The family of this 105-nucleotide RNA sequence from Caldanaerobacter subterraneus is "Guanidine-I riboswitch aptamer".
It scores 78 bits against the family's covariance model.
The organism belongs to Caldanaerobacter subterraneus subsp. tengcongensis, within Bacteria.
On this family, see Reiss et al., Structure 2017: "Structural Basis for Ligand Binding to the Guanidine-I Riboswitch".
[Rfam]
RNA sequence: UGAAAGUGUACCUAGGGUUCCAGCCUGGCAACAGGCGUUCGGUCCGAGCGGUACAGGUAUAUGGGUUUCCAUAUACCACACCUUAGGGAUAAAAGCCCGGGAGGA
Numbered sequence: 001u002g003a004a005a006g007u008g009u010a011c012c013u014a015g016g017g018u019u020c021c022a023g024c025c026u027g028g029c030a031a032c033a034g035g036c037g038u039u040c041g042g043u044c045c046g047a048g049c050g051g052u053a054c055a056g057g058u059a060u061a062u063g064g065g066u067u068u069c070c071a072u073a074u075a076c077c078a079c080a081c082c083u084u085a086g087g088g089a090u091a092a093a094a095g096c097c098c099g100g101g102a103g104g105a
Stems, first nucleotide, its partner, number of pairs: 007055006015045002020042002022039001023036005056077008079100001081103001086098003
Dot-bracket structure: ......((((((..((...((((((((....)))))..).)).))....))))))((((((((......)))))))).(.[....(((.......))).)..]..